[Rfam]
Rfam assigns this 69-nucleotide sequence from Labedaea rhizosphaerae to the family "ASpks TB sRNA". The base pairs follow the family's consensus structure, which is taken from published work.
RNA sequence: CUUGAUGGAGCCCAGGUACAGCGGCUCUUCCCGCUCCUGGCCGUAGGUGGCCAGCAGCGCCUGGGCCUC
Numbered sequence: 001c002u003u004g005a006u007g008g009a010g011c012c013c014a015g016g017u018a019c020a021g022c023g024g025c026u027c028u029u030c031c032c033g034c035u036c037c038u039g040g041c042c043g044u045a046g047g048u049g050g051c052c053a054g055c056a057g058c059g060c061c062u063g064g065g066c067c068u069c
Stems, first nucleotide, its partner, number of pairs: 014026002017023001028065003032059002037054003041050003